Rfam assigns this 84-nucleotide RNA sequence from Polypterus senegalus to the family "mir-301 microRNA precursor family". The base pairs follow the family's consensus structure, which was predicted with WAR. Rfam links the family to the GO terms miRNA-mediated post-transcriptional gene silencing and RISC complex. For this family Rfam cites "Embryonic stem cell-specific MicroRNAs" (Houbaviy et al., Dev Cell, 2003).

RNA sequence: UGUGUGCAGUUGCUCUGACUUUAUUGCACUACUGUAGUAGACAGCUAGCAGUGCAAUAGUAUUGUCAAAGCGUCUGCGAGCAGG
Numbered sequence: 001u002g003u004g005u006g007c008a009g010u011u012g013c014u015c016u017g018a019c020u021u022u023a024u025u026g027c028a029c030u031a032c033u034g035u036a037g038u039a040g041a042c043a044g045c046u047a048g049c050a051g052u053g054c055a056a057u058a059g060u061a062u063u064g065u066c067a068a069a070g071c072g073u074c075u076g077c078g079a080g081c082a083g084g
Base pairs, nucleotide, nucleotide: 002081003080007076008075009074011072012071013070014069016067017066018065019064023057024056025055026054027053028052029051030050034042